[Rfam]
RNA sequence: CCAGCAGGGAUAGUGUGUAUCAGUGUUGUGCUAUCAAAUGCAUUCUUCUGAAAGUGUUCCCUAGCAAUAUUAAUCUGAGAAAAUGGGCAGUUGUGUUUCAUUUUUAAAUUUGAAAAAUCACAACAAUCAUUUUCCCUACAUUU
Numbered sequence: 001c002c003a004g005c006a007g008g009g010a011u012a013g014u015g016u017g018u019a020u021c022a023g024u025g026u027u028g029u030g031c032u033a034u035c036a037a038a039u040g041c042a043u044u045c046u047u048c049u050g051a052a053a054g055u056g057u058u059c060c061c062u063a064g065c066a067a068u069a070u071u072a073a074u075c076u077g078a079g080a081a082a083a084u085g086g087g088c089a090g091u092u093g094u095g096u097u098u099c100a101u102u103u104u105u106a107a108a109u110u111u112g113a114a115a116a117a118u119c120a121c122a123a124c125a126a127u128c129a130u131u132u133u134c135c136c137u138a139c140a141u142u143u
Base pairs, nucleotide, nucleotide: 004065005064006062007061008060009059010058015043016042017041018040019039020038077136079134080133081132082131083130084129085128086127090124091123092122093121094120095119
The family of this 143-nucleotide RNA sequence from Trifolium subterraneum is "small nucleolar RNA snoR135". A reference for the family is Chen and Wu (2009), "Mining small RNA sequencing data: a new approach to identify small nucleolar RNAs in Arabidopsis", Nucleic Acids Res.